[Rfam]
RNA sequence: GGUGACAUCAUACUGGACAGCAUUGGACGUGAUUGGAUCGUUCUCUAAUACUGUCUGGUGAUGAUGUUGAC
Numbered sequence: 001g002g003u004g005a006c007a008u009c010a011u012a013c014u015g016g017a018c019a020g021c022a023u024u025g026g027a028c029g030u031g032a033u034u035g036g037a038u039c040g041u042u043c044u045c046u047a048a049u050a051c052u053g054u055c056u057g058g059u060g061a062u063g064a065u066g067u068u069g070a071c
Base pairs, nucleotide, nucleotide: 003069004068005067006066007065008064009063011060012059013058014057015056016055017054018053019052020051022049023048024047025046026045027044
About this RNA:
This 71-nucleotide RNA from Lytechinus variegatus belongs to the Rfam family "mir-8/mir-141/mir-200 microRNA precursor family". The family has 164 seed sequences and 2,669 matches in Rfam 15.1. The literature on the family includes a 2003 paper in RNA by Lagos-Quintana et al., "New microRNAs from mouse and human".